[Rfam]
RNA sequence: GAUUAAAAUGAAGAUGUCCCUCAUAUAAUCGCAAGAAUUGGCUUGCGAGUUUCUACCGGAUGACCGUAAAUCAUCCGACUACGGGUGGGCAACAAGACAAA
Number, nucleotide and partner (000 for none) at each position: 001g000002a000003u000004u000005a000006a000007a000008a000009u000010g000011a000012a000013g000014a000015u000016g000017u000018c087019c000020c085021u084022c083023a000024u081025a080026u000027a000028a000029u048030c047031g046032c045033a044034a043035g042036a000037a000038u000039u000040g000041g000042c035043u034044u033045g032046c031047g030048a029049g000050u000051u000052u000053c000054u000055a000056c000057c077058g076059g075060a074061u073062g072063a071064c000065c000066g000067u000068a000069a000070a000071u063072c062073a061074u060075c059076c058077g057078a000079c000080u025081a024082c000083g022084g021085g020086u000087g018088g000089g000090c000091a000092a000093c000094a000095a000096g000097a000098c000099a000100a000101a000
Shown here is a 101-nucleotide RNA from Laceyella tengchongensis, a member of the family "Purine riboswitch aptamer".
Rfam links the family to the GO term purine nucleobase biosynthetic process.